[Rfam]
RNA sequence: CCCGCGGCUAGACGGAAAGACCCCGUGAACCUUUACUAUAGCUUGACACUGAACCUUGAAUUUUGAUGUGUAGGAUAGGUGGGAGGCUUUGAAGCGGUAACGCCAGUUAUCGUGGAGCCAUCCUUGAAAUACCACCCUUUAACGUUUGAUGUUCUAACGAAGCACCUGAAACGGGUGUUCGGACAGUGUCUGGUGGGUAGUUUGACUGGGGCGGUCUCCUCCCAAAGAGUAACGGAGGAGCACGAAGGUUUGCUAAUGACGGUCGGACAUCGUCAGGUUAGUGCAAUGGUAUAAGCAAGCUUAACUGCGAGACAGACAAGUCGAGCAGGUGCGAAAGCAGGUCAUAGUGAUCCGGUGGUUCUGAAUGGAAGGGCCAUCGCUCAACGGAUAAAAGGUACUCCGGGGAUAACAGGCUGAUACCGCCCAAGAGUUCAUAUCGACGGCGGUGUUUGGCACCUCGAUGUCGGCUCAUCACAUCCUGGGGCUGAAGUAGGUCCCAAGGGUAUGGCUGUUCGCCAUUUAAAGUGGUACGCGAGCUGGGUUUAGAACGUCGUGAGACAGUUCGGUCCCUAUCUGCCGUGGGCGUU
Numbered sequence: 001c002c003c004g005c006g007g008c009u010a011g012a013c014g015g016a017a018a019g020a021c022c023c024c025g026u027g028a029a030c031c032u033u034u035a036c037u038a039u040a041g042c043u044u045g046a047c048a049c050u051g052a053a054c055c056u057u058g059a060a061u062u063u064u065g066a067u068g069u070g071u072a073g074g075a076u077a078g079g080u081g082g083g084a085g086g087c088u089u090u091g092a093a094g095c096g097g098u099a100a101c102g103c104c105a106g107u108u109a110u111c112g113u114g115g116a117g118c119c120a121u122c123c124u125u126g127a128a129a130u131a132c133c134a135c136c137c138u139u140u141a142a143c144g145u146u147u148g149a150u151g152u153u154c155u156a157a158c159g160a161a162g163c164a165c166c167u168g169a170a171a172c173g174g175g176u177g178u179u180c181g182g183a184c185a186g187u188g189u190c191u192g193g194u195g196g197g198u199a200g201u202u203u204g205a206c207u208g209g210g211g212c213g214g215u216c217u218c219c220u221c222c223c224a225a226a227g228a229g230u231a232a233c234g235g236a237g238g239a240g241c242a243c244g245a246a247g248g249u250u251u252g253c254u255a256a257u258g259a260c261g262g263u264c265g266g267a268c269a270u271c272g273u274c275a276g277g278u279u280a281g282u283g284c285a286a287u288g289g290u291a292u293a294a295g296c297a298a299g300c301u302u303a304a305c306u307g308c309g310a311g312a313c314a315g316a317c318a319a320g321u322c323g324a325g326c327a328g329g330u331g332c333g334a335a336a337g338c339a340g341g342u343c344a345u346a347g348u349g350a351u352c353c354g355g356u357g358g359u360u361c362u363g364a365a366u367g368g369a370a371g372g373g374c375c376a377u378c379g380c381u382c383a384a385c386g387g388a389u390a391a392a393a394g395g396u397a398c399u400c401c402g403g404g405g406a407u408a409a410c411a412g413g414c415u416g417a418u419a420c421c422g423c424c425c426a427a428g429a430g431u432u433c434a435u436a437u438c439g440a441c442g443g444c445g446g447u448g449u450u451u452g453g454c455a456c457c458u459c460g461a462u463g464u465c466g467g468c469u470c471a472u473c474a475c476a477u478c479c480u481g482g483g484g485c486u487g488a489a490g491u492a493g494g495u496c497c498c499a500a501g502g503g504u505a506u507g508g509c510u511g512u513u514c515g516c517c518a519u520u521u522a523a524a525g526u527g528g529u530a531c532g533c534g535a536g537c538u539g540g541g542u543u544u545a546g547a548a549c550g551u552c553g554u555g556a557g558a559c560a561g562u563u564c565g566g567u568c569c570c571u572a573u574c575u576g577c578c579g580u581g582g583g584c585g586u587u
Stems, first nucleotide, its partner, number of pairs: 001583008010575003014570002022404004027400002029396005035201004042193002045190004051154004056149006063142004068137001078136005085119003094113008158181003162178006204216004217239006240385001242342002248300006254280002257275006281290002305328004311322003330339003353379007361372002413454003417451001418448007428438002465540001466538004470532001471529005478503002481498006505519005546564004550559003
Record summary
This 587-nucleotide part of an RNA from Bisgaardia hudsonensis belongs to the Rfam family "Bacterial large subunit ribosomal RNA". The match comes from Rfam's covariance-model search (2822 bits). Taxonomically the source falls in Bisgaardia (Bacteria, Pseudomonadota, Gammaproteobacteria, Pasteurellales).